RNA sequence: AUGAUUGUGCUCAGACCUUUCUCCUUCAGGAUCUUUACCCUUUCCUAAGACACAAGGUUUGGGCACUAAAAA
Numbered sequence: 001a002u003g004a005u006u007g008u009g010c011u012c013a014g015a016c017c018u019u020u021c022u023c024c025u026u027c028a029g030g031a032u033c034u035u036u037a038c039c040c041u042u043u044c045c046u047a048a049g050a051c052a053c054a055a056g057g058u059u060u061g062g063g064c065a066c067u068a069a070a071a072a
Stems, first nucleotide, its partner, number of pairs: 007066009017056002028046004
Source information:
The family of this 72-nucleotide RNA sequence is "potC RNA". The family's consensus secondary structure is taken from published work. Rfam's curators put it in the seed alignment.